[Rfam]
Nucleotides: 086
Base pairs, nucleotide, nucleotide: 001086002085005079006078008076009075010074011073012072015065016064020032021031022030023029040061041060042059043058044057045056
Number, partner (000 for none) and nucleotide at each position: 001086a002085g003000c004000g005079g006078u007000a008076a009075g010074c011073a012072a013000u014000c015065c016064g017000g018000a019000u020032c021031c022030u023029g024000g025000u026000a027000g028000a029023c030022a031021g032020g033000u034000u035000u036000a037000a038000c039000g040061g041060g042059c043058u044057g045056g046000g047000g048000g049000u050000g051000g052000u053000g054000c055000c056045c057044c058043g059042g060041c061040c062000g063000u064016c065015g066000c067000a068000u069000c070000a071000c072012u073011u074010g075009c076008u077000g078006a079005u080000a081000c082000a083000a084000u085002c086001u
Necrovirus cap-independent translation element: an 86-nucleotide sequence from Alphanecrovirus oleae. The base pairs follow the family's consensus structure. Taxonomically the source falls in Alphanecrovirus oleae (Viruses, Orthornavirae, Kitrinoviricota, Procedovirinae). It is annotated as a cis-regulatory element. It scores 81 bits against the family's covariance model.